[Rfam]
RNA sequence: CAAACGUAUGAAAUAAUGACUCGUAUAAAACCGGGAAUAUGGCCCGGACGUUUCUACCCGAAUACCGUAAAUGUUCGGACUACGAGAGUAAACAGAUCGAUC
Numbered sequence: 001c002a003a004a005c006g007u008a009u010g011a012a013a014u015a016a017u018g019a020c021u022c023g024u025a026u027a028a029a030a031c032c033g034g035g036a037a038u039a040u041g042g043c044c045c046g047g048a049c050g051u052u053u054c055u056a057c058c059c060g061a062a063u064a065c066c067g068u069a070a071a072u073g074u075u076c077g078g079a080c081u082a083c084g085a086g087a088g089u090a091a092a093c094a095g096a097u098c099g100a101u102c
Stems, first nucleotide, its partner, number of pairs: 020086006031047005058078007
Dot-bracket structure: ...................((((((.....(((((.......)))))..........(((((((.......)))))))..))))))................
RNA: Purine riboswitch aptamer
Organism: Paenibacillus nuruki